A member of the RNA family "Enterococcus sRNA 68 (Lacto-3 RNA)" from Secundilactobacillus collinoides, 130 nucleotides long.
RNA sequence: UGCGAUGAGUCGAGAAUAAUCACGUCGUCAGUAAUGGCGGUCUGCGCAAGCGGCUAGGUGAUUUUCUGGCAGCGGGCACGUUUUUCCCACCGUAUUGUGGGUGCCAUAGUUCAAAGGAAAUGUGGAUUUC
Numbered sequence: 001u002g003c004g005a006u007g008a009g010u011c012g013a014g015a016a017u018a019a020u021c022a023c024g025u026c027g028u029c030a031g032u033a034a035u036g037g038c039g040g041u042c043u044g045c046g047c048a049a050g051c052g053g054c055u056a057g058g059u060g061a062u063u064u065u066c067u068g069g070c071a072g073c074g075g076g077c078a079c080g081u082u083u084u085u086c087c088c089a090c091c092g093u094a095u096u097g098u099g100g101g102u103g104c105c106a107u108a109g110u111u112c113a114a115a116g117g118a119a120a121u122g123u124g125g126a127u128u129u130c
Base pairs, nucleotide, nucleotide: 019062020061021060022059023058024041025040026039027038028037029036042053043052044051045050075105076104077103078102079101087100088099089098090097117130118129119128120127121126
Annotation:
Pairs were carried over by alignment from the consensus structure, which is taken from published work. It scores 78 bits against the family's covariance model.